Purine riboswitch aptamer: a 100-nucleotide RNA sequence from Marinobacterium stanieri. Pairs were carried over by alignment from the consensus structure, which is taken from published work. Rfam's curators write: Riboswitches are metabolite binding domains within certain messenger RNAs that serve as precision sensors for their corresponding targets. The source organism's lineage runs through Bacteria, Pseudomonadota, Gammaproteobacteria, Oceanospirillales and Marinobacterium. The family has 133 seed sequences and 4,097 matches in Rfam 15.1.
[Rfam]
RNA sequence: AUGCCAGCAAGUAACUCCCUUCGUAUAACCCCAAUAAUAUGGUUUGGGGGUCUCUACCAGGAACCGUUAAUUCCUGCUUACGAAGAGUUCAGCGAUUCUA
Numbered sequence: 001a002u003g004c005c006a007g008c009a010a011g012u013a014a015c016u017c018c019c020u021u022c023g024u025a026u027a028a029c030c031c032c033a034a035u036a037a038u039a040u041g042g043u044u045u046g047g048g049g050g051u052c053u054c055u056a057c058c059a060g061g062a063a064c065c066g067u068u069a070a071u072u073c074c075u076g077c078u079u080a081c082g083a084a085g086a087g088u089u090c091a092g093c094g095a096u097u098c099u100a
Stems, first nucleotide, its partner, number of pairs: 019085007029049006058076006